[Rfam]
About this RNA
The record is a 181-nucleotide RNA sequence from Pelusios castaneus, which matches "Small nucleolar RNA SNORA23" in Rfam. The source organism's lineage runs through Eukaryota, Bilateria, Craniata, Amniota and Pelusios. From the family's description: The members of this family belong to the H/ACA class of snoRNAs which are thought to guide the sites of modification of uridines to pseudouridines. This family includes human snoRNA ACA23 (SNORA23) and mouse snoMBI-1. ACA23 is predicted to guide the pseudouridylation of residue U3737 and U4331 of 28S rRNA. The family has 9 seed sequences and 1,092 matches in Rfam 15.1. The family's RNA type in Rfam is H/ACA-box small nucleolar RNA. A search with the family's covariance model found it, with a score of 155 bits. The base pairs follow the family's consensus structure, which was predicted with RNAalifold. Its family is annotated with nucleolus and RNA processing in the Gene Ontology. On this family, see Huttenhofer et al., EMBO J 2001: "RNomics: an experimental approach that identifies 201 candidates for novel, small, non-messenger RNAs in mouse".
Nucleotides: 181
Base pairs, nucleotide, nucleotide: 013090014089030083031082032081034079036077037075038074039073040072041071042070044068045067046066048064051061052060053059106174107173108172109171110170119160120159121158122157123156124155126154127153128152129151131145132142133141134140
Number, partner (000 for none) and nucleotide at each position: 001000g002000c003000a004000g005000u006000a007000c008000u009000g010000u011000g012000u013090g014089c015000a016000u017000a018000g019000u020000u021000u022000c023000u024000c025000c026000u027000c028000u029000g030083u031082g032081u033000c034079u035000u036077g037075u038074a039073g040072u041071a042070u043000g044068g045067u046066c047000c048064a049000u050000u051061u052060g053059u054000g055000u056000u057000u058000u059053a060052c061051a062000u063000u064048u065000a066046g067045a068044c069000u070042g071041u072040a073039c074038u075037g076000c077036u078000c079034a080000c081032a082031c083030a084000a085000a086000c087000c088000u089014g090013u091000g092000g093000c094000c095000a096000a097000a098000g099000a100000u101000g102000a103000a104000g105000u106174u107173g108172a109171g110170a111000u112000c113000a114000u115000a116000g117000u118000a119160c120159u121158g122157g123156u124155c125000u126154a127153g128152u129151g130000a131145u132142g133141u134140c135000u136000a137000a138000a139000a140134g141133a142132c143000a144000a145131a146000c147000c148000u149000a150000c151129c152128a153127c154126u155124g156123g157122c158121c159120a160119g161000c162000c163000u164000c165000c166000a167000a168000a169000c170110u171109c172108u173107c174106a175000a176000a177000c178000a179000u180000c181000u